Shown here is a 149-nucleotide RNA sequence from Dysgonomonas sp. PF1-16, a member of the family "Group II catalytic intron D1-D4-7". On this family, see Bonen and Vogel, Trends Genet 2001: "The ins and outs of group II introns". From the family's description: Group II introns are found in rRNA, tRNA and mRNA of organelles in fungi, plants and protists, and also in mRNA in bacteria. Rfam links the family to the GO term Group II intron splicing. The source organism's lineage runs through Bacteria, Bacteroidota, Bacteroidia, Bacteroidales and Dysgonomonas.
RNA sequence: CCCGUUGUGUCGCCAACGGUAGCCUAUGGGCAGGUGCACUAAUAGUAAUAUUUAUGUAUUAAGCUGUCCUGACAAGGUAACCCUUCCGAAAGGAGCAGUCGGAACCGCGAGGGAAAGACAAUAAUCACUAGUAUCAUGUGAUUGGGGAG
Numbered sequence: 001c002c003c004g005u006u007g008u009g010u011c012g013c014c015a016a017c018g019g020u021a022g023c024c025u026a027u028g029g030g031c032a033g034g035u036g037c038a039c040u041a042a043u044a045g046u047a048a049u050a051u052u053u054a055u056g057u058a059u060u061a062a063g064c065u066g067u068c069c070u071g072a073c074a075a076g077g078u079a080a081c082c083c084u085u086c087c088g089a090a091a092g093g094a095g096c097a098g099u100c101g102g103a104a105c106c107g108c109g110a111g112g113g114a115a116a117g118a119c120a121a122u123a124a125u126c127a128c129u130a131g132u133a134u135c136a137u138g139u140g141a142u143u144g145g146g147g148a149g
Stems, first nucleotide, its partner, number of pairs: 002019006028069005033060006041052004084095004098119003105112002124142005